[Rfam]
RNA sequence: GUUGGGGCGGGCGAUGGAUCCCGCCCGGGUCGUGCUCGACCAGCGCUCGUCCCGAACCGCAAUACUGCUGAUGGUUCCUACCACGUC
Dot-bracket structure: .........((((..[[[.[[)))).................................(((....)))....]].]]].........
Numbered sequence: 001g002u003u004g005g006g007g008c009g010g011g012c013g014a015u016g017g018a019u020c021c022c023g024c025c026c027g028g029g030u031c032g033u034g035c036u037c038g039a040c041c042a043g044c045g046c047u048c049g050u051c052c053c054g055a056a057c058c059g060c061a062a063u064a065c066u067g068c069u070g071a072u073g074g075u076u077c078c079u080a081c082c083a084c085g086u087c
Stems, first nucleotide, its partner, number of pairs: 010025004016078003020074002059068003